[Rfam]
A member of the RNA family "ASpks TB sRNA" from Actinophytocola xinjiangensis, 69 nucleotides long.
Pairs were carried over by alignment from the consensus structure, which is taken from published work.

RNA sequence: CUUGAUCGAGCCGAUCAGCAGCGGGUGCUCGCGGUUCUGGCCGUAGGUCUCCAGCAGCGCCUGCGCCUC
Numbered sequence: 001c002u003u004g005a006u007c008g009a010g011c012c013g014a015u016c017a018g019c020a021g022c023g024g025g026u027g028c029u030c031g032c033g034g035u036u037c038u039g040g041c042c043g044u045a046g047g048u049c050u051c052c053a054g055c056a057g058c059g060c061c062u063g064c065g066c067c068u069c
Stems, first nucleotide, its partner, number of pairs: 014026003028065001030063001032059002037054003043048001